[Rfam]
RNA sequence: GGGUCUAAUUAUGAGAAUAUGCAAGUAAUCUCACAACGGUCUUCUGAGAACCCUUUUGAUGCAAUAACUAUUGUUCAGCCC
Numbered sequence: 001g002g003g004u005c006u007a008a009u010u011a012u013g014a015g016a017a018u019a020u021g022c023a024a025g026u027a028a029u030c031u032c033a034c035a036a037c038g039g040u041c042u043u044c045u046g047a048g049a050a051c052c053c054u055u056u057u058g059a060u061g062c063a064a065u066a067a068c069u070a071u072u073g074u075u076c077a078g079c080c081c
Stems, first nucleotide, its partner, number of pairs: 001081004048056003
RNA: Small nucleolar RNA Z161/Z228
Organism: Panicum virgatum